[Rfam]
RNA sequence: AUUGUUCCGCGUUUCCGAGCAAACAUAUCCAAGCGCUCCGCGCCUGCGAUACCGCGUUUGCGCUGCGGACUGAUCCGCAUCCGCGCGGGUAUGCGUAGAAAUGCCAUGCCUUCCCAUGAUCGAAAAGGAAACGACGAAUACACCGC
Numbered sequence: 001a002u003u004g005u006u007c008c009g010c011g012u013u014u015c016c017g018a019g020c021a022a023a024c025a026u027a028u029c030c031a032a033g034c035g036c037u038c039c040g041c042g043c044c045u046g047c048g049a050u051a052c053c054g055c056g057u058u059u060g061c062g063c064u065g066c067g068g069a070c071u072g073a074u075c076c077g078c079a080u081c082c083g084c085g086c087g088g089g090u091a092u093g094c095g096u097a098g099a100a101a102u103g104c105c106a107u108g109c110c111u112u113c114c115c116a117u118g119a120u121c122g123a124a125a126a127g128g129a130a131a132c133g134a135c136g137a138a139u140a141c142a143c144c145g146c
Base pairs, nucleotide, nucleotide: 003140004139006137011132012131013130014129015128016127019061020060021059022058023057024056065084066083067082068081069080087111088110089109090108091107092106093105095104096103097102112123113122
Molybdenum/Tungsten riboswitch aptamer (Moco RNA motif): a 146-nucleotide RNA from Selenomonas sp. F0473. Gene Ontology terms of the family: tungstate binding, molybdenum ion binding and regulation of gene expression.